[Rfam]
RNA sequence: GACCAUGAUGAGUAACCAUGCUAAUACUGAUGCAACAGUCACAUUCCUCUGGUAUGUGUUCUGGGGGCAAAUGAGUUAAACCACUUUCUCGUUUUGAACUCUGAGGUCA
Dot-bracket structure: ((((...................................(((((.........)))))..............................................)))).
RNA: Small nucleolar RNA U6-53/MBII-28
Organism: Leptobrachium leishanense